[Rfam]
RNA sequence: UCUAGUAUAGUUCUUCUUGCUGGGCCUUCUUUAAGACCCUAAGAUAAAUUUUGGACGCCUGUCUCUAAGGAGGCAGGUG
Numbered sequence: 001u002c003u004a005g006u007a008u009a010g011u012u013c014u015u016c017u018u019g020c021u022g023g024g025c026c027u028u029c030u031u032u033a034a035g036a037c038c039c040u041a042a043g044a045u046a047a048a049u050u051u052u053g054g055a056c057g058c059c060u061g062u063c064u065c066u067a068a069g070g071a072g073g074c075a076g077g078u079g
Stems, first nucleotide, its partner, number of pairs: 022039003026035003057078008